[Rfam]
RNA: Small nucleolar RNA SNORA74
RNA sequence: CCCAGUGGUAGUCAGCUGUCCAGAGCAGUACCGUGCCUGUGAUAGUGUUACACUGCUGGGAGAUAAAGGUCAGUCAUUUCUUCUGGUUGUUGUCACCAUUCUGGAGACAGCUGAUGCCAGAAAGAAGUGCUGUUGUGCUUCCCUGAGACGUACUAAGGAUAUGCUUCACCUCUUUAGUGCUAGUCCGGAAGCAUACAUG
Numbered sequence: 001c002c003c004a005g006u007g008g009u010a011g012u013c014a015g016c017u018g019u020c021c022a023g024a025g026c027a028g029u030a031c032c033g034u035g036c037c038u039g040u041g042a043u044a045g046u047g048u049u050a051c052a053c054u055g056c057u058g059g060g061a062g063a064u065a066a067a068g069g070u071c072a073g074u075c076a077u078u079u080c081u082u083c084u085g086g087u088u089g090u091u092g093u094c095a096c097c098a099u100u101c102u103g104g105a106g107a108c109a110g111c112u113g114a115u116g117c118c119a120g121a122a123a124g125a126a127g128u129g130c131u132g133u134u135g136u137g138c139u140u141c142c143c144u145g146a147g148a149c150g151u152a153c154u155a156a157g158g159a160u161a162u163g164c165u166u167c168a169c170c171u172c173u174u175u176a177g178u179g180c181u182a183g184u185c186c187g188g189a190a191g192c193a194u195a196c197a198u199g
Base pairs, nucleotide, nucleotide: 001060002059003058004057005056006055007054008053009052011051012050015046016045017044018043019042020041021039022038023037068133073128074125075124082121083120084119085118086117087113089111091109092108093107094106096104097103135194136193137192138191139190140189141188142187150180151179152178154176155175156174157173158172159171